[Rfam]
RNA sequence: CAAAAGAGAUGAUGAAAUCAAAAAAAUUUAGGACACCUUCUGACACUGUACAAUGUUGUGUUGUGUAUAAGAAAGAUUUUCAUUUCUGAUUGUUUUG
Numbered sequence: 001c002a003a004a005a006g007a008g009a010u011g012a013u014g015a016a017a018u019c020a021a022a023a024a025a026a027u028u029u030a031g032g033a034c035a036c037c038u039u040c041u042g043a044c045a046c047u048g049u050a051c052a053a054u055g056u057u058g059u060g061u062u063g064u065g066u067a068u069a070a071g072a073a074a075g076a077u078u079u080u081c082a083u084u085u086c087u088g089a090u091u092g093u094u095u096u097g
Base pairs, nucleotide, nucleotide: 001097002096003095004094005093007091045049
RNA: Small nucleolar RNA snoR31/Z110/Z27